[Rfam]
RNA sequence: GACUCUUCAUUCCCUGUUCUUUUUUGACUUCUUUUUUCUCCAAUAACCUUGGAGGCGUGCUCGUUUACGGAAGAUAAGUCAAAAACGAACAGAAAGCCUCCCAACGGGAGGCUUUUUUAUA
Numbered sequence: 001g002a003c004u005c006u007u008c009a010u011u012c013c014c015u016g017u018u019c020u021u022u023u024u025u026g027a028c029u030u031c032u033u034u035u036u037u038c039u040c041c042a043a044u045a046a047c048c049u050u051g052g053a054g055g056c057g058u059g060c061u062c063g064u065u066u067a068c069g070g071a072a073g074a075u076a077a078g079u080c081a082a083a084a085a086c087g088a089a090c091a092g093a094a095a096g097c098c099u100c101c102c103a104a105c106g107g108g109a110g111g112c113u114u115u116u117u118u119a120u121a
Base pairs, nucleotide, nucleotide: 016090017089018088019087021085022084023083024082025081026080027079028078029077030076032074033073034072036070037069039053040052041051042050054065055064056063057062093115094114095113096112097111098110099109100108101107102106

Shown here is a 121-nucleotide RNA from Vibrio furnissii, a member of the family "Phenylalanine leader peptide". It is annotated as a cis-regulatory leader. For this family Rfam cites "Nucleotide sequence of the leader region of the phenylalanine operon of Escherichia coli" (Zurawski et al., Proc Natl Acad Sci U S A, 1978).